[Rfam]
Annotation:
A member of the RNA family "mir-196 microRNA precursor family" from Takifugu flavidus, 74 nucleotides long. Lineage of the source: Eukaryota > Craniata > Clupeocephala > Euacanthomorphacea > Takifugu. It scores 68 bits against the family's covariance model. Its family is annotated with gene silencing by miRNA and RISC complex in the Gene Ontology.

RNA sequence: UGUGUGGUUUAGGUAGUCUCAUGUUGUUGGGUUCUAAUAUUUCUCCCACAACAGGACACUGCCUUAAUUACCUC
Number, nucleotide and partner (000 for none) at each position: 001u000002g000003u000004g071005u070006g069007g068008u067009u066010u000011a064012g063013g062014u061015a060016g059017u058018c000019u056020c000021a000022u053023g052024u051025u050026g049027u048028u000029g047030g046031g045032u000033u000034c000035u000036a000037a000038u000039a000040u000041u000042u000043c000044u000045c031046c030047c029048a027049c026050a025051a024052c023053a022054g000055g000056a019057c000058a017059c016060u015061g014062c013063c012064u011065u000066a009067a008068u007069u006070a005071c004072c000073u000074c000